[Rfam]
The record is a 78-nucleotide sequence from Dipodomys ordii, which matches "Small nucleolar RNA SNORD126" in Rfam.
By type it is a C/D-box small nucleolar RNA.
The base pairs follow the family's consensus structure, which was predicted with WAR.
RNA sequence: AGUUUGCCAUGAUGAAAUGCAUGUUACUCCGUGUUUCAGAGGAUCUACCUGAUGUUAAACACAUGUUCUGAGCAGACA
Numbered sequence: 001a002g003u004u005u006g007c008c009a010u011g012a013u014g015a016a017a018u019g020c021a022u023g024u025u026a027c028u029c030c031g032u033g034u035u036u037c038a039g040a041g042g043a044u045c046u047a048c049c050u051g052a053u054g055u056u057a058a059a060c061a062c063a064u065g066u067u068c069u070g071a072g073c074a075g076a077c078a
Base pairs, nucleotide, nucleotide: 002077003076004075005074006073007072